[Rfam]
RNA sequence: GCCGAGCUCAGUCACGAGAGCUUGUGACCCAUGUGGGGGCAUCAAGGUGGUGUGGAUGAUUGGUGCGUAUUCUCGGCCUGGGCCUGUGGAGUGACUUUGCCGGCUUGCCCGUUCCAAGUUGGUAGUGGGCUGGGUGGCUGGGGCGAAAGCCUCGGCCUCUCAGGCCCUGAAGCGGCAGGCACCACGUUAGGCUGGUUUCACAGAGCAGCGUUUACUGCCCGCUUCCAACGGUGGAAGGAUAACAGGCCCCGCUGCACCAUGGGUCCACUCUGGCCUAGGACCCCUCCAUAACAGACCACCAUCUUU
Dot-bracket structure: (((((((((........))))))....(((....))))))...(((((((((.(..((..(((.(.(..((((.((((.((((((((.(.(((.(.....(((((((.((.(((((.(((((.(((((.(((((.(((((((((....))))))))).))))).))(....).(((((.....((((....(((......)))....))))...))))).))).)))))..)))))))....))))))..)..))))))))))))).....)))).)))).).).)))...))..)))))))))).

This 306-nucleotide sequence from Triticum aestivum belongs to the Rfam family "Plant signal recognition particle RNA". By type it is a non-coding RNA gene.